[Rfam]
RNA sequence: GAUGCCUCCAGAAUAACCAGAAGGUGAAACUGUGAUGGAAUACCAUUUGGUUCAGACAGAGGCGGAUAGAUCUUGAAGCAGGUUGAGAGUGUGGAACAGAAAUUUAUUGUUCCUUUUCCUACCAUAGUUUCAUAUAUUU
Numbered sequence: 001g002a003u004g005c006c007u008c009c010a011g012a013a014u015a016a017c018c019a020g021a022a023g024g025u026g027a028a029a030c031u032g033u034g035a036u037g038g039a040a041u042a043c044c045a046u047u048u049g050g051u052u053c054a055g056a057c058a059g060a061g062g063c064g065g066a067u068a069g070a071u072c073u074u075g076a077a078g079c080a081g082g083u084u085g086a087g088a089g090u091g092u093g094g095a096a097c098a099g100a101a102a103u104u105u106a107u108u109g110u111u112c113c114u115u116u117u118c119c120u121a122c123c124a125u126a127g128u129u130u131c132a133u134a135u136a137u138u139u
Base pairs, nucleotide, nucleotide: 003064004063005062006061007060009059015052016051017050018049019048020047021046024043025042026041074132075131076130077129078128079127081123082122083121087118088117089116091115094112095111096110097109098108099107
Small nucleolar RNA snoR138: a 139-nucleotide RNA sequence from Morus notabilis. It is annotated as an H/ACA-box small nucleolar RNA. Taxonomically the source falls in Morus (Eukaryota, Streptophytina, Tracheophyta, Spermatophyta). Gene Ontology terms of the family: nucleolus and RNA processing. For this family Rfam cites "Mining small RNA sequencing data: a new approach to identify small nucleolar RNAs in Arabidopsis" (Chen and Wu, Nucleic Acids Res, 2009).